[Rfam]
Nucleotides: 084
Stems, first nucleotide, its partner, number of pairs: 002084005
Number, partner (000 for none) and nucleotide at each position: 001000u002084g003083u004082g005081c006080a007000a008000u009000c010000u011000c012000c013000u014000c015000c016000a017000g018000a019000a020000u021000a022000u023000u024000u025000u026000a027000a028000c029000u030000g031000u032000u033000u034000u035000g036000a037000u038000g039000u040000a041000a042000g043000u044000a045000c046000a047000c048000u049000u050000u051000c052000a053000a054000c055000c056000u057000u058000u059000c060000c061000u062000g063000c064000u065000g066000a067000a068000u069000u070000u071000u072000u073000a074000u075000g076000a077000a078000u079000u080006u081005g082004u083003a084002c
Background: The record is an 84-nucleotide sequence from Pampusana beccarii, which matches "Small nucleolar RNA MBII-202" in Rfam. The base pairs follow the family's consensus structure, which was predicted with PFOLD. It is annotated as a C/D-box small nucleolar RNA. The family has 30 seed sequences and 745 matches in Rfam 15.1. Its family is annotated with RNA processing and nucleolus in the Gene Ontology. The organism belongs to Pampusana, within Eukaryota.